[Rfam]
RNA sequence: GGGGCCGUUACGGAUUCGACAUGUGUAGGUGAGCGUGAAUUGCACUUCGUAGGUUACGUCUGCGUUAACAACGUUACAGUUAAUUAUAACUGCAAACAAUAACAAUUCUUACGCUGUAGCUGCCUAAACACCAGCAUAGCGUGAUCCGUCUGACUUCACCCAAGGGUUAGAUCCGGGUCUCAAAUUAAUUGGGUUACGUUAAAUGCCGCCGUUUGAAGUGUUUAAAAGAGAUUUUCAAGCUAGUUAGUCCAUCCGAGCCUCUGUUGAACGGCGUUUUGGGCUAGCGAAUUUCUAAAUAGUUCGACUAUGAGUGUAGAGAUUGACGUGGCAAUGCGCAUGGACGCGGGUUCAACCCCCGCCGGCUCCAUUG
Numbered sequence: 001g002g003g004g005c006c007g008u009u010a011c012g013g014a015u016u017c018g019a020c021a022u023g024u025g026u027a028g029g030u031g032a033g034c035g036u037g038a039a040u041u042g043c044a045c046u047u048c049g050u051a052g053g054u055u056a057c058g059u060c061u062g063c064g065u066u067a068a069c070a071a072c073g074u075u076a077c078a079g080u081u082a083a084u085u086a087u088a089a090c091u092g093c094a095a096a097c098a099a100u101a102a103c104a105a106u107u108c109u110u111a112c113g114c115u116g117u118a119g120c121u122g123c124c125u126a127a128a129c130a131c132c133a134g135c136a137u138a139g140c141g142u143g144a145u146c147c148g149u150c151u152g153a154c155u156u157c158a159c160c161c162a163a164g165g166g167u168u169a170g171a172u173c174c175g176g177g178u179c180u181c182a183a184a185u186u187a188a189u190u191g192g193g194u195u196a197c198g199u200u201a202a203a204u205g206c207c208g209c210c211g212u213u214u215g216a217a218g219u220g221u222u223u224a225a226a227a228g229a230g231a232u233u234u235u236c237a238a239g240c241u242a243g244u245u246a247g248u249c250c251a252u253c254c255g256a257g258c259c260u261c262u263g264u265u266g267a268a269c270g271g272c273g274u275u276u277u278g279g280g281c282u283a284g285c286g287a288a289u290u291u292c293u294a295a296a297u298a299g300u301u302c303g304a305c306u307a308u309g310a311g312u313g314u315a316g317a318g319a320u321u322g323a324c325g326u327g328g329c330a331a332u333g334c335g336c337a338u339g340g341a342c343g344c345g346g347g348u349u350c351a352a353c354c355c356c357c358g359c360c361g362g363c364u365c366c367a368u369u370g
Stems, first nucleotide, its partner, number of pairs: 001366007020339008033326004038321004043313005048064005053077002056074004115141003119137001121136003143180001146177002149171008158194006199225008211240006243285009257272003263305004269299001343359005
RNA: transfer-messenger RNA